Rfam assigns this 70-nucleotide RNA sequence from Pantherophis guttatus to the family "mir-34 microRNA precursor family". Gene Ontology terms of the family: miRNA-mediated post-transcriptional gene silencing and RISC complex. Taxonomically the source falls in Pantherophis (Eukaryota, Chordata, Dipnotetrapodomorpha, Colubroidea). The literature on the family includes a 2003 paper in Science by Lim et al., "Vertebrate microRNA genes". The family's consensus secondary structure was predicted with RNAalifold. From the family's description: Human mir-34a was discovered computationally and later experimentally verified. The mature sequence is excised from the 5' arm of the hairpin.

RNA sequence: GGUUUGUAGGCAGUGUAGUUAGCUGAUUGUGUAUCUCCCCAGCAAUCACUAGCUUCACUGUCAACAAAAC
Numbered sequence: 001g002g003u004u005u006g007u008a009g010g011c012a013g014u015g016u017a018g019u020u021a022g023c024u025g026a027u028u029g030u031g032u033a034u035c036u037c038c039c040c041a042g043c044a045a046u047c048a049c050u051a052g053c054u055u056c057a058c059u060g061u062c063a064a065c066a067a068a069a070c
Stems, first nucleotide, its partner, number of pairs: 003068004009062002012059004017054006024048007